[Rfam]
RNA sequence: GUUGGUGUACACGGGAGCCCCGCAGGGGGCUGAGAGGAAGCCACCGGGCUUCGACCGUCGAACCUGAUCCGGGUCAUGCCGGCGCAGGGAGGACAUCUCGCACCCGU
Numbered sequence: 001g002u003u004g005g006u007g008u009a010c011a012c013g014g015g016a017g018c019c020c021c022g023c024a025g026g027g028g029g030c031u032g033a034g035a036g037g038a039a040g041c042c043a044c045c046g047g048g049c050u051u052c053g054a055c056c057g058u059c060g061a062a063c064c065u066g067a068u069c070c071g072g073g074u075c076a077u078g079c080c081g082g083c084g085c086a087g088g089g090a091g092g093a094c095a096u097c098u099c100g101c102a103c104c105c106g107u
Base pairs, nucleotide, nucleotide: 006095007094008093010091011058012057013056014055017030018029019028020027021026037052038051039050040049041048063088064087065086066085069082070081071080072079
Annotation:
The family of this 107-nucleotide sequence from Microcella putealis is "TPP riboswitch aptamer (THI element)". Rfam 15.1 lists 16,130 matches to the family in 8,693 species. The family's consensus secondary structure is taken from published work. It scores 65 bits against the family's covariance model. Lineage of the source: Bacteria > Bacillati > Actinomycetota > Actinomycetes > Microcella.